Shown here is a 97-nucleotide RNA from Diceros bicornis, a member of the family "mir-544 microRNA precursor family". Rfam links the family to the GO terms miRNA-mediated post-transcriptional gene silencing and RISC complex. Pairs were carried over by alignment from the consensus structure, which was predicted with RNAalifold. The source organism's lineage runs through Eukaryota, Chordata, Laurasiatheria, Diceros and Diceros bicornis.
RNA sequence: AUCACCUGGGGAUCUUGUAAAAAUGUAGAUUCUGAUUCAGUAUAUCUGGGAUGGAGCCCGAGAUUCUGCAUUUCUGACAAGCCCGAGGUGAUCCCUA
Numbered sequence: 001a002u003c004a005c006c007u008g009g010g011g012a013u014c015u016u017g018u019a020a021a022a023a024u025g026u027a028g029a030u031u032c033u034g035a036u037u038c039a040g041u042a043u044a045u046c047u048g049g050g051a052u053g054g055a056g057c058c059c060g061a062g063a064u065u066c067u068g069c070a071u072u073u074c075u076g077a078c079a080a081g082c083c084c085g086a087g088g089u090g091a092u093c094c095c096u097a
Stems, first nucleotide, its partner, number of pairs: 003090003009084003014081005020075001021073003025069005031063003